Background:
Rfam assigns this 54-nucleotide sequence from Drosophila melanogaster to the family "mir-1011 microRNA precursor family". It is one of the family's seed sequences. Pairs were carried over by alignment from the consensus structure, which was predicted with RNAalifold. Taxonomically the source falls in Sophophora (Eukaryota, Bilateria, Hexapoda, Muscomorpha).
RNA sequence: GUGAGUUUUUGAGCCAGGAAUAUAGUUCUUAUUAUUGGUUCAAAUCGCUCGCAG
Numbered sequence: 001g002u003g004a005g006u007u008u009u010u011g012a013g014c015c016a017g018g019a020a021u022a023u024a025g026u027u028c029u030u031a032u033u034a035u036u037g038g039u040u041c042a043a044a045u046c047g048c049u050c051g052c053a054g
Stems, first nucleotide, its partner, number of pairs: 001052006008044010019033004